Shown here is a 113-nucleotide sequence from Cebus imitator, a member of the family "Y RNA". For this family Rfam cites "Conserved features of Y RNAs: a comparison of experimentally derived secondary structures" (Teunissen et al., Nucleic Acids Res, 2000). The family's RNA type in Rfam is non-coding RNA gene.

RNA sequence: UGCUGGUCCAAAGGUAGUGAGUUAUCUCAAUUGAUUGUUCACAGUCAGUUACAGAUCAAACUCCUUGUUCUACUCUUUCCCCCAUUCUCACUACUGAACUUGACUAAAAAAAU
Numbered sequence: 001u002g003c004u005g006g007u008c009c010a011a012a013g014g015u016a017g018u019g020a021g022u023u024a025u026c027u028c029a030a031u032u033g034a035u036u037g038u039u040c041a042c043a044g045u046c047a048g049u050u051a052c053a054g055a056u057c058a059a060a061c062u063c064c065u066u067g068u069u070c071u072a073c074u075c076u077u078u079c080c081c082c083c084a085u086u087c088u089c090a091c092u093a094c095u096g097a098a099c100u101u102g103a104c105u106a107a108a109a110a111a112a113u
Stems, first nucleotide, its partner, number of pairs: 001109001004106005010101002015096001016092006044074001047071002